[Rfam]
This 589-nucleotide part of an RNA from Stieleria bergensis belongs to the Rfam family "Bacterial large subunit ribosomal RNA".
RNA sequence: CCCGCGGUUAGACGGAAAGACCCCGUGAACCUUUACUGUAGGCUGAUAUUGGGUUGAGAUAUGUCUUGUGUAGGAUAGCUGGGAGGCUUUGAGCUCGGCACGCUAGUGUCGAAGGAGCCGUUGUUGAAAUACCAGCCUGGUCAUAUUUUAAUUCUAACUUUGAUCUCGUGAAUCCGAGCAAAGGACAGUGUCAGUCGGGCAGUUUGACUGGGGCGGUCUCCUCCCAAAGAGUAACGGAGGAGUACAAAGGUACACUCAGCCUGGUCGGCAAUCAGGCGAAGAGCGUAAAGGUAGAAGUGUGCUUGACUGCGAGACCCAUAAGUCGAGCAGGAACGAAAGUUGGUCUUAGUGAUCCGGUAAUCCCGAAUGGAAGGGUUAUCGCUCAUCAGAUAAAAGGUACUCCGGGGAUAACAGGCUUAUCGCAUCCGAGCGUCCACAGCGGCGAUGCGGUUUGGCACCUCGAUGUCGGCUCAUCACAUCCUGGGGGUGUAGAAGCUCCCAAGGGUUUGGCUGUUCGCCAAUGAAAGUGGUACGUGAGCUGGGUUCAGACCGUCGUGAGACAGGUCGGUCCCUAUCUGCCGUGGGCGUU
Dot-bracket structure: ((((((((.(((.((......((((.(((((((.((((...(((((((..(((((((((((((.((.(.........(((((..(((.......(((((((....)))))))....)))............)))))).)).)))))))))))))...(((....((((......))))..))).....)))))))....))))..((((.....))))((((((...........))))))(.((....((((((((.((((((.......))))))...))((......))....))))))....((((..(((......)))..)))).(((....))).))..........(((((((.((........))))))))).....)......)))))..))))))........(((.((((((((...((.......))...)))))))..))))..........(((((((((((..((.((((((......))))))...)).(((((.....))))).....)))))..)..)))).).....(((((((....))).))))....))..)))))))))))....
Numbered sequence: 001c002c003c004g005c006g007g008u009u010a011g012a013c014g015g016a017a018a019g020a021c022c023c024c025g026u027g028a029a030c031c032u033u034u035a036c037u038g039u040a041g042g043c044u045g046a047u048a049u050u051g052g053g054u055u056g057a058g059a060u061a062u063g064u065c066u067u068g069u070g071u072a073g074g075a076u077a078g079c080u081g082g083g084a085g086g087c088u089u090u091g092a093g094c095u096c097g098g099c100a101c102g103c104u105a106g107u108g109u110c111g112a113a114g115g116a117g118c119c120g121u122u123g124u125u126g127a128a129a130u131a132c133c134a135g136c137c138u139g140g141u142c143a144u145a146u147u148u149u150a151a152u153u154c155u156a157a158c159u160u161u162g163a164u165c166u167c168g169u170g171a172a173u174c175c176g177a178g179c180a181a182a183g184g185a186c187a188g189u190g191u192c193a194g195u196c197g198g199g200c201a202g203u204u205u206g207a208c209u210g211g212g213g214c215g216g217u218c219u220c221c222u223c224c225c226a227a228a229g230a231g232u233a234a235c236g237g238a239g240g241a242g243u244a245c246a247a248a249g250g251u252a253c254a255c256u257c258a259g260c261c262u263g264g265u266c267g268g269c270a271a272u273c274a275g276g277c278g279a280a281g282a283g284c285g286u287a288a289a290g291g292u293a294g295a296a297g298u299g300u301g302c303u304u305g306a307c308u309g310c311g312a313g314a315c316c317c318a319u320a321a322g323u324c325g326a327g328c329a330g331g332a333a334c335g336a337a338a339g340u341u342g343g344u345c346u347u348a349g350u351g352a353u354c355c356g357g358u359a360a361u362c363c364c365g366a367a368u369g370g371a372a373g374g375g376u377u378a379u380c381g382c383u384c385a386u387c388a389g390a391u392a393a394a395a396g397g398u399a400c401u402c403c404g405g406g407g408a409u410a411a412c413a414g415g416c417u418u419a420u421c422g423c424a425u426c427c428g429a430g431c432g433u434c435c436a437c438a439g440c441g442g443c444g445a446u447g448c449g450g451u452u453u454g455g456c457a458c459c460u461c462g463a464u465g466u467c468g469g470c471u472c473a474u475c476a477c478a479u480c481c482u483g484g485g486g487g488u489g490u491a492g493a494a495g496c497u498c499c500c501a502a503g504g505g506u507u508u509g510g511c512u513g514u515u516c517g518c519c520a521a522u523g524a525a526a527g528u529g530g531u532a533c534g535u536g537a538g539c540u541g542g543g544u545u546c547a548g549a550c551c552g553u554c555g556u557g558a559g560a561c562a563g564g565u566c567g568g569u570c571c572c573u574a575u576c577u578g579c580c581g582u583g584g585g586c587g588u589u
Stems, first nucleotide, its partner, number of pairs: 001585008010577003014572002022406004027402002029398005035203004042195007051154013065140002068137001078136005085119003095112007158183003165178004206218004219241006242387001244344002250302006256282002259277006283292002307330004313324003332341003355381007363374002415456003419453001420450007430440002467542001468540004472534001473531005480505002483500006507521005548566004552561003
The family has 102 seed sequences and 51,934 matches in Rfam 15.1. The base pairs follow the family's consensus structure, which is taken from published work.